[Rfam]
RNA sequence: UGGGUCGGCAAGACGGUCGCGUCGCAUUCCGGGCCCGAGAGGGCGCGGAAAGCGCCGAGGAACGUCCGGGCUCCGCAGAGCAGGGCGGUGGGUAACACCCACCCGGGGUAACCCGCGAGAAAGUGCAACAGAAAGCAGACCGCCACGGACUUCGGUUCGGGGUAAGGGUGAAACGGUGGUGUAAGAGACCACCAGCGGCCCGCGUGAUCGGGUCGGCUAGGUAAACCUCGCCAGGAGCAAGGUCAGACAGGAAGCGUUACGGGCUGCUCGCCUAGCUUCCGGGUAGACCGCUAGAGGUGUGCGGCAACGUACAUCGUAGAUAGAUGGCCGUCGAUGGUGUCGUUCCCGCAAGGGGGCGCACCGGGACAGAACCCGGCGUACUAGCCGGCCCAUUCA
Number, nucleotide and partner (000 for none) at each position: 001u392002g391003g390004g389005u388006c387007g386008g385009c384010a000011a000012g332013a331014c330015g329016g328017u327018c326019g000020c057021g056022u000023c054024g053025c052026a000027u050028u049029c048030c047031g046032g000033g000034c000035c000036c000037g000038a000039g000040a000041g000042g000043g000044c000045g000046c031047g030048g029049a028050a027051a000052g025053c024054g023055c000056c021057g020058a000059g000060g000061a000062a379063c378064g377065u000066c376067c375068g374069g373070g372071c237072u236073c235074c234075g000076c000077a000078g269079a268080g267081c266082a000083g000084g232085g231086c230087g229088g102089u101090g100091g099092g098093u000094a000095a000096c000097a000098c092099c091100c090101a089102c088103c117104c115105g114106g113107g112108g000109u000110a000111a000112c107113c106114c105115g104116c000117g103118a228119g227120a000121a000122a000123g226124u225125g222126c221127a000128a000129c000130a000131g000132a000133a000134a000135g000136c000137a000138g000139a000140c167141c166142g163143c162144c161145a000146c159147g158148g157149a156150c155151u000152u000153c000154g000155g150156u149157u148158c147159g146160g000161g144162g143163u142164a000165a000166g141167g140168g000169u000170g000171a000172a000173a000174c000175g193176g192177u191178g190179g189180u188181g000182u000183a000184a000185g000186a000187g000188a180189c179190c178191a177192c176193c175194a000195g217196c215197g214198g213199c212200c211201c210202g209203c000204g000205u000206g000207a000208u000209c202210g201211g200212g199213u198214c197215g196216g000217c195218u000219a000220g000221g126222u125223a000224a000225a124226c123227c119228u118229c087230g086231c085232c084233a000234g074235g073236a072237g071238c000239a000240a000241g289242g288243u287244c286245a000246g000247a000248c000249a000250g280251g279252a278253a277254g276255c275256g000257u000258u000259a000260c000261g273262g272263g271264c270265u000266g081267c080268u079269c078270g264271c263272c262273u261274a000275g255276c254277u253278u252279c251280c250281g000282g000283g000284u000285a000286g244287a243288c242289c241290g000291c000292u000293a000294g000295a000296g315297g314298u313299g312300u311301g310302c309303g308304g000305c000306a000307a000308c303309g302310u301311a300312c299313a298314u297315c296316g000317u000318a000319g000320a000321u000322a000323g000324a000325u000326g018327g017328c016329c015330g014331u013332c012333g000334a000335u000336g000337g000338u000339g000340u000341c000342g000343u000344u000345c000346c000347c000348g000349c000350a000351a000352g000353g000354g000355g000356g000357c000358g000359c000360a000361c000362c000363g000364g000365g000366a000367c000368a000369g000370a000371a000372c070373c069374c068375g067376g066377c064378g063379u062380a000381c000382u000383a000384g009385c008386c007387g006388g005389c004390c003391c002392a001393u000394u000395c000396a000

The family of this 396-nucleotide RNA sequence from Lacisediminihabitans profunda is "Bacterial RNase P class A".
Its Rfam clan is "RNaseP clan".
The organism belongs to Lacisediminihabitans, within Bacteria.